[Rfam]
RNA sequence: CAUUUGCUGUGAUGAAUCUCAAGGACGGUAUCUGAGAAAGGUGGCUCUUGAAAGAGUUCUCCUUCCUUGAUUAACAUCCUAAACUGAUCAUAUAAUCUGAGCAAACA
Numbered sequence: 001c002a003u004u005u006g007c008u009g010u011g012a013u014g015a016a017u018c019u020c021a022a023g024g025a026c027g028g029u030a031u032c033u034g035a036g037a038a039a040g041g042u043g044g045c046u047c048u049u050g051a052a053a054g055a056g057u058u059c060u061c062c063u064u065c066c067u068u069g070a071u072u073a074a075c076a077u078c079c080u081a082a083a084c085u086g087a088u089c090a091u092a093u094a095a096u097c098u099g100a101g102c103a104a105a106c107a
Base pairs, nucleotide, nucleotide: 003105004104005103006102007101036066038064039063040062041061